[Rfam]
RNA: tRNA
RNA sequence: GCGGCGGUGGUGGAAUUGGUAGACACGUCAGCUUGAGGUGCUGAUGCCGCGAGGUGUGCUGGUUCAAGUCCAGUUCGCCGCA
Numbered sequence: 001g002c003g004g005c006g007g008u009g010g011u012g013g014a015a016u017u018g019g020u021a022g023a024c025a026c027g028u029c030a031g032c033u034u035g036a037g038g039u040g041c042u043g044a045u046g047c048c049g050c051g052a053g054g055u056g057u058g059c060u061g062g063u064u065c066a067a068g069u070c071c072a073g074u075u076c077g078c079c080g081c082a
Base pairs, nucleotide, nucleotide: 001081002080003079004078005077006076007075010026011025012024028044029043030042031041032040058074059073060072061071062070